Rfam assigns this 113-nucleotide RNA sequence from Serinus canaria to the family "Small nucleolar RNA SNORA69". Taxonomically the source falls in Serinus (Eukaryota, Tetrapoda, Amniota, Sauria). U69 is a member of the H/ACA class of small nucleolar RNAs (snoRNAs) which act as guides in the the modification of uridines to pseudouridines. Rfam classes the family as an H/ACA-box small nucleolar RNA.
Nucleotides: 113
Base pairs, nucleotide, nucleotide: 003034004033005032006031007030008029045107046106047105048104049103050102051101052100053099054098055097061091062090063089064088065087066086067085068084069083070082071081072080
Number, partner (000 for none) and nucleotide at each position: 001000a002000a003034a004033a005032g006031a007030a008029u009000u010000u011000g012000a013000a014000u015000g016000u017000a018000a019000a020000c021000c022000c023000a024000a025000u026000u027000a028000c029008a030007u031006u032005u033004u034003u035000a036000a037000a038000a039000g040000a041000a042000u043000u044000u045107g046106a047105a048104u049103g050102u051101a052100a053099a054098c055097c056000c057000a058000a059000u060000u061091u062090g063089a064088u065087u066086u067085c068084u069083c070082g071081u072080a073000c074000u075000a076000u077000a078000u079000g080072u081071a082070c083069g084068a085067g086066a087065a088064a089063u090062c091061a092000a093000a094000a095000u096000g097055g098054g099053u100052u101051u102050a103049c104048a105047u106046u107045c108000a109000a110000a111000u112000u113000c